[Rfam]
RNA sequence: AGUCUGCAUGCUUCCCCUAGUUGUCCUAUGACUUUUGUAUCAGGGAGAGAGAAAGGACCUUCGGGACCUCGGACUGGUCUCCCGGUGGCCUCUCUUUCUUUAAGGGGCACAACAGAC
Numbered sequence: 001a002g003u004c005u006g007c008a009u010g011c012u013u014c015c016c017c018u019a020g021u022u023g024u025c026c027u028a029u030g031a032c033u034u035u036u037g038u039a040u041c042a043g044g045g046a047g048a049g050a051g052a053a054a055g056g057a058c059c060u061u062c063g064g065g066a067c068c069u070c071g072g073a074c075u076g077g078u079c080u081c082c083c084g085g086u087g088g089c090c091u092c093u094c095u096u097u098c099u100u101u102a103a104g105g106g107g108c109a110c111a112a113c114a115g116a117c
Stems, first nucleotide, its partner, number of pairs: 003050003011047005019033004058106004063101003071095003076090004
A member of the RNA family "Small nucleolar RNA SNORA64/SNORA10 family" from Chinchilla lanigera, 117 nucleotides long. Gene Ontology terms of the family: nucleolus and RNA processing. The family's RNA type in Rfam is H/ACA-box small nucleolar RNA. The literature on the family includes a 1999 paper in EMBO J by Narayanan et al., "Nucleolar localization signals of box H/ACA small nucleolar RNAs". About the family: This family belongs to the H/ACA class of small nucleolar RNAs (snoRNAs) which act as guides in the the modification of uridines to pseudouridines. This family includes the human snoRNAs U64 and ACA10 and mouse MBI-29. Clan: SNORA64 clan. The family's consensus secondary structure is taken from published work. The match comes from Rfam's covariance-model search (39 bits).